[Rfam]
RNA: c-di-GMP-I riboswitch aptamer
Organism: Clostridium butyricum
RNA sequence: UAAUUGAAUACGCAAAGUUAAUGAAAGUUAAUGACGCAAAGCUAUAGGGACUAAGAAUUUUAUUAAGAAUUUAUGUCAGCCAGUUGCCGGG
Numbered sequence: 001u002a003a004u005u006g007a008a009u010a011c012g013c014a015a016a017g018u019u020a021a022u023g024a025a026a027g028u029u030a031a032u033g034a035c036g037c038a039a040a041g042c043u044a045u046a047g048g049g050a051c052u053a054a055g056a057a058u059u060u061u062a063u064u065a066a067g068a069a070u071u072u073a074u075g076u077c078a079g080c081c082a083g084u085u086g087c088c089g090g091g
Stems, first nucleotide, its partner, number of pairs: 012037002017032006040085004047081002049077003056071006